c-di-GMP-I riboswitch aptamer: an 86-nucleotide sequence from Acetonema longum. The organism belongs to Acetonema longum, within Bacteria. GEMM was predicted in a large-scale screen for bacterial structured RNA regulatory elements. The base pairs follow the family's consensus structure, which is taken from published work.

RNA sequence: UAAUAAACACGGCAAACUUAUUGAAAAAUAAGGACGCAAAGCUAUGGGUCUACGUACUUUAAGUAUAUGGCUGCCAGGUUGCAAAA
Numbered sequence: 001u002a003a004u005a006a007a008c009a010c011g012g013c014a015a016a017c018u019u020a021u022u023g024a025a026a027a028a029u030a031a032g033g034a035c036g037c038a039a040a041g042c043u044a045u046g047g048g049u050c051u052a053c054g055u056a057c058u059u060u061a062a063g064u065a066u067a068u069g070g071c072u073g074c075c076a077g078g079u080u081g082c083a084a085a086a
Stems, first nucleotide, its partner, number of pairs: 012037002017032006040080004045076003048071003055065004